RNA sequence: GGAUGUUUGCCAACACUCUGGUGCCAAAUCAUUGGAUUGUUGUUUUUAAGAAUGUAUUUUCUUGUUGCAAUUUAAUUUAAUGCCAUAUUUGGUUCCUAUUUUGGUGCAAACUAGAACGGUAAAAGCUGACUACUCACCAGUAUAUCCAACAUUUUGAUGGAUAUACUUGGUCCAUUUCAUUAGCUUACAU
Numbered sequence: 001g002g003a004u005g006u007u008u009g010c011c012a013a014c015a016c017u018c019u020g021g022u023g024c025c026a027a028a029u030c031a032u033u034g035g036a037u038u039g040u041u042g043u044u045u046u047u048a049a050g051a052a053u054g055u056a057u058u059u060u061c062u063u064g065u066u067g068c069a070a071u072u073u074a075a076u077u078u079a080a081u082g083c084c085a086u087a088u089u090u091g092g093u094u095c096c097u098a099u100u101u102u103g104g105u106g107c108a109a110a111c112u113a114g115a116a117c118g119g120u121a122a123a124a125g126c127u128g129a130c131u132a133c134u135c136a137c138c139a140g141u142a143u144a145u146c147c148a149a150c151a152u153u154u155u156g157a158u159g160g161a162u163a164u165a166c167u168u169g170g171u172c173c174a175u176u177u178c179a180u181u182a183g184c185u186u187a188c189a190u
Stems, first nucleotide, its partner, number of pairs: 007109003020096002023093002026090004033074007124185004137170003140166001142164006
This 190-nucleotide RNA from Candida tropicalis belongs to the Rfam family "Small nucleolar RNA snR80". Lineage of the source: Eukaryota > Dikarya > Debaryomycetaceae > Candida > Candida tropicalis. For this family Rfam cites "Genome-wide searching for pseudouridylation guide snoRNAs: analysis of the Saccharomyces cerevisiae genome" (Schattner et al., Nucleic Acids Res, 2004). It is annotated as an H/ACA-box small nucleolar RNA. Its family is annotated with nucleolus and RNA processing in the Gene Ontology. The family is grouped with related families in Rfam's "SNORA28 clan".